RNA sequence: CUAUAAAACAAGCCUAAACUUCCAAAACUGGAAUCAAGUGCGGGGGAUAACAAUAUUUGAGGUGAAUCUUUUUAUUAAAAAGUAGGACAAUCCCUCUCCGAACCUGUCAACUAACCUCGUAGGCUAAUUAGGGAGGAUAU
Numbered sequence: 001c002u003a004u005a006a007a008a009c010a011a012g013c014c015u016a017a018a019c020u021u022c023c024a025a026a027a028c029u030g031g032a033a034u035c036a037a038g039u040g041c042g043g044g045g046g047a048u049a050a051c052a053a054u055a056u057u058u059g060a061g062g063u064g065a066a067u068c069u070u071u072u073u074a075u076u077a078a079a080a081a082g083u084a085g086g087a088c089a090a091u092c093c094c095u096c097u098c099c100g101a102a103c104c105u106g107u108c109a110a111c112u113a114a115c116c117u118c119g120u121a122g123g124c125u126a127a128u129u130a131g132g133g134a135g136g137a138u139a140u
Stems, first nucleotide, its partner, number of pairs: 011125004018039003040120006051059002060105003068082004085099003
RNA: c-di-AMP riboswitch aptamer (ydaO/yuaA leader)